The family of this 73-nucleotide RNA from Acidaminococcus fermentans is "tRNA".
Rfam describes the family as follows. Transfer RNA (tRNA) molecules are approximately 80 nucleotides in length.
A search with the family's covariance model found it, with a score of 72 bits.
Taxonomically the source falls in Acidaminococcus fermentans (Bacteria, Bacillati, Bacillota, Negativicutes).

RNA sequence: GCUACUGUAGCUCAGCUGGUAGAGCAUCUCAUUCGUAAUGAGAGGGUCGUAGGUUCGAAUCCUAUCAGUAGCU
Dot-bracket structure: (((((((..((((........)))).(((((.......))))).....(((((.......)))))))))))).